[Rfam]
RNA sequence: UUUAAUAUAGUUCCAUUUGUGUUUCAUAAGCUAAGUAUACAAAAUAGCUCGUGAGUCAAAAAAUGGAUAAAAAAAUUGCAGAAAUAAAAAAUAUAUCAAUUUUUAUGAUUUAUUUAUGCAUAAAAAUAAUUUAGUUCUUCAACAACACAUUG
Numbered sequence: 001u002u003u004a005a006u007a008u009a010g011u012u013c014c015a016u017u018u019g020u021g022u023u024u025c026a027u028a029a030g031c032u033a034a035g036u037a038u039a040c041a042a043a044a045u046a047g048c049u050c051g052u053g054a055g056u057c058a059a060a061a062a063a064u065g066g067a068u069a070a071a072a073a074a075a076u077u078g079c080a081g082a083a084a085u086a087a088a089a090a091a092u093a094u095a096u097c098a099a100u101u102u103u104u105a106u107g108a109u110u111u112a113u114u115u116a117u118g119c120a121u122a123a124a125a126a127u128a129a130u131u132u133a134g135u136u137c138u139u140c141a142a143c144a145a146c147a148c149a150u151u152g
Stems, first nucleotide, its partner, number of pairs: 012067007020058002023055005029049004080138004085133004089127001097107002109124005
Dot-bracket structure: ...........(((((((.((.(((((.((((.............)))).))))).))..)))))))............((((.(((((.......((.......)).(((((......)))))..)..)))).))))..............
RNA: small nucleolar RNA snoR03
Organism: Plasmodium chabaudi